This 51-nucleotide sequence from a Plautia stali symbiont belongs to the Rfam family "Guanidine-II riboswitch aptamer (mini-ykkC)". Pairs were carried over by alignment from the consensus structure, which is taken from published work. A search with the family's covariance model found it, with a score of 33 bits. Rfam links the family to the GO term regulation of gene expression.
[Rfam]
RNA sequence: GCAACGGGACGACCCGUUUUACGCCGUCACAGCUGGUGCAGGACGACCUGC
Numbered sequence: 001g002c003a004a005c006g007g008g009a010c011g012a013c014c015c016g017u018u019u020u021a022c023g024c025c026g027u028c029a030c031a032g033c034u035g036g037u038g039c040a041g042g043a044c045g046a047c048c049u050g051c
Stems, first nucleotide, its partner, number of pairs: 001020001003018006038051005